This 70-nucleotide RNA from Apis mellifera belongs to the Rfam family "mir-965 microRNA precursor family".
RNA sequence: UUCCAAGGGGGAAAGGUUAUAGCGAUUAUGAGAAAUUAAGCCAUAAGCGUAUAGCUUUUUCCCUUUGGCA
Numbered sequence: 001u002u003c004c005a006a007g008g009g010g011g012a013a014a015g016g017u018u019a020u021a022g023c024g025a026u027u028a029u030g031a032g033a034a035a036u037u038a039a040g041c042c043a044u045a046a047g048c049g050u051a052u053a054g055c056u057u058u059u060u061c062c063c064u065u066u067g068g069c070a
Stems, first nucleotide, its partner, number of pairs: 003068005009062003013058002017054005026046005

Gene Ontology terms of the family: RISC complex and miRNA-mediated post-transcriptional gene silencing.